The record is a 328-nucleotide RNA sequence from Polaromonas naphthalenivorans, which matches "Bacterial RNase P class A" in Rfam. About the family: Ribonuclease P (RNase P) is a ubiquitous endoribonuclease, found in archaea, bacteria and eukarya as well as chloroplasts and mitochondria. The organism belongs to Polaromonas naphthalenivorans, within Bacteria.

RNA sequence: GAAGCCUGCCAGACCGCCGCUGGUGCAAUUUCCGAAAGGAAGCACUGGAGGAACGUCCGGACUGCACAGGACAGCGUAGGAGGUAAUACCUCUCCACCGUGAGGUGAGGAUCAGAGCAACAGAGACGAGCCGAUUCAGUUCGGGUGAAACGGGCAAUCUCUACGCGCAGCAACACCAAAUAGGCCAGCGUUGACGUGGUUCCGCGGAGCUGGCGGGUAGGUGGCACCGAGCCGGGCAGGCGACUCCCGGCCCAGAUUAAUGGCGGUCACACCGGGCAACCGAAAGGAAGCCAGGCGCACAAAAUCCGGCUUAUCGGCGGGCUUCACAC
Numbered sequence: 001g002a003a004g005c006c007u008g009c010c011a012g013a014c015c016g017c018c019g020c021u022g023g024u025g026c027a028a029u030u031u032c033c034g035a036a037a038g039g040a041a042g043c044a045c046u047g048g049a050g051g052a053a054c055g056u057c058c059g060g061a062c063u064g065c066a067c068a069g070g071a072c073a074g075c076g077u078a079g080g081a082g083g084u085a086a087u088a089c090c091u092c093u094c095c096a097c098c099g100u101g102a103g104g105u106g107a108g109g110a111u112c113a114g115a116g117c118a119a120c121a122g123a124g125a126c127g128a129g130c131c132g133a134u135u136c137a138g139u140u141c142g143g144g145u146g147a148a149a150c151g152g153g154c155a156a157u158c159u160c161u162a163c164g165c166g167c168a169g170c171a172a173c174a175c176c177a178a179a180u181a182g183g184c185c186a187g188c189g190u191u192g193a194c195g196u197g198g199u200u201c202c203g204c205g206g207a208g209c210u211g212g213c214g215g216g217u218a219g220g221u222g223g224c225a226c227c228g229a230g231c232c233g234g235g236c237a238g239g240c241g242a243c244u245c246c247c248g249g250c251c252c253a254g255a256u257u258a259a260u261g262g263c264g265g266u267c268a269c270a271c272c273g274g275g276c277a278a279c280c281g282a283a284a285g286g287a288a289g290c291c292a293g294g295c296g297c298a299c300a301a302a303a304u305c306c307g308g309c310u311u312a313u314c315g316g317c318g319g320g321c322u323u324c325a326c327a328c
Base pairs, nucleotide, nucleotide: 001324002323003322004321005320006319007318008317009316010315011313012267013266014265015264016263017262018261020048021047022046023045024044025043026042053311055309057308058307059306060305061304062169063168064167065166069200070199074165075164076163077162078161079093080092081091082090083089094108095106096105097104098103109160110159114158115157116154117153130143131142132141133140173222174221175220176219183213184212185211186210187209188208194205195204196203197202230250231249232248233247234246235245237244238243